[Rfam]
RNA: Makes More Granules Regulator RNA (mmgR)
Organism: Methylobacterium sp. GXS13
RNA sequence: UGCUGCUGCCCCUCGUGGGCGUUUCCUCCCAAGACUUCGGGCCGCUCUUUCGGGGGCGGUCCUUUUUUUGUUCCAGG
Numbered sequence: 001u002g003c004u005g006c007u008g009c010c011c012c013u014c015g016u017g018g019g020c021g022u023u024u025c026c027u028c029c030c031a032a033g034a035c036u037u038c039g040g041g042c043c044g045c046u047c048u049u050u051c052g053g054g055g056g057c058g059g060u061c062c063u064u065u066u067u068u069u070g071u072u073c074c075a076g077g
Stems, first nucleotide, its partner, number of pairs: 008020004039062009